[Rfam]
T-box leader: a 248-nucleotide sequence from Bacillus subtilis.
Rfam classes the family as a cis-regulatory leader.
The organism belongs to Bacillus subtilis subsp. subtilis, within Bacteria.
Rfam describes the family as follows. Uncharged tRNA acts as the effector for transcription antitermination of genes in the T-box leader family. T-boxes are found upstream of many aminoacyl-tRNA synthetase genes and some amino acid biosynthetic genes usually in Gram-positive bacteria. The anticodon of a specific tRNA base pairs to a specifier sequence within the T-box motif, and the NCCA acceptor tail of the tRNA base pairs to a conserved bulge in the T-box antiterminator hairpin.
It scores 126 bits against the family's covariance model.
The family's consensus secondary structure is taken from published work.
RNA sequence: UUAACAAUCGUGAGGAAGAGCAAGUACGCAUCAGAAUGGAGGUUCAGAGAGUCGGUGGCAGGUGUGAACCGAUCCUCCCCUGAUGCCGAAUGGGCUUCUGAAUUGCUUUGCUGAACGGAUAGUAGGCGAUGCCGGGUUUCUCUCCCCGUUACCAAGAGAGGAGUAUCGAAACAUAGGUUUUCUGUACUUAGAGUGAACGGCUGUAUAGCUGUUAAUAAAGGUGGUACCGCGAGACCCUCGUCCUUUGC
Number, nucleotide and partner (000 for none) at each position: 001u000002u000003a000004a000005c000006a000007a103008u102009c000010g000011u000012g000013a000014g000015g098016a097017a096018g095019a000020g000021c000022a000023a000024g000025u000026a000027c000028g086029c085030a084031u083032c082033a000034g000035a000036a000037u000038g000039g000040a076041g075042g074043u000044u000045c000046a000047g000048a000049g000050a000051g073052u072053c071054g070055g069056u068057g000058g000059c000060a000061g000062g000063u000064g000065u000066g000067a000068a056069c055070c054071g053072a052073u051074c042075c041076u040077c000078c000079c000080c000081u000082g032083a031084u030085g029086c028087c000088g000089a000090a000091u000092g000093g000094g000095c018096u017097u016098c015099u000100g000101a000102a008103u007104u000105g000106c131107u000108u129109u128110g127111c126112u125113g000114a000115a000116c000117g000118g000119a000120u000121a000122g000123u000124a000125g112126g111127c110128g109129a108130u000131g106132c000133c148134g147135g146136g000137u000138u000139u000140c000141u000142c000143u000144c000145c000146c135147c134148g133149u000150u000151a000152c000153c000154a000155a000156g000157a000158g000159a000160g000161g000162a000163g000164u000165a000166u000167c000168g000169a000170a000171a000172c000173a000174u000175a000176g000177g000178u000179u000180u000181u000182c000183u000184g000185u000186a000187c000188u000189u000190a000191g000192a000193g000194u000195g000196a213197a212198c211199g210200g209201c208202u207203g000204u000205a000206u000207a202208g201209c200210u199211g198212u197213u196214a000215a000216u000217a000218a245219a244220g243221g242222u000223g000224g000225u000226a000227c000228c000229g241230c240231g239232a238233g237234a000235c000236c000237c233238u232239c231240g230241u229242c221243c220244u219245u218246u000247g000248c000